Rfam assigns this 57-nucleotide sequence from Amnibacterium setariae to the family "msiK RNA". A search with the family's covariance model found it, with a score of 59 bits.

RNA sequence: ACUGGUCAUCCUCACUACGGAUCGUCCGGCACGUACCUGCCGGUGAAGGAGAACAGC
Numbered sequence: 001a002c003u004g005g006u007c008a009u010c011c012u013c014a015c016u017a018c019g020g021a022u023c024g025u026c027c028g029g030c031a032c033g034u035a036c037c038u039g040c041c042g043g044u045g046a047a048g049g050a051g052a053a054c055a056g057c
Base pairs, nucleotide, nucleotide: 009049010048012046013045014044026043027042028041029040030039031038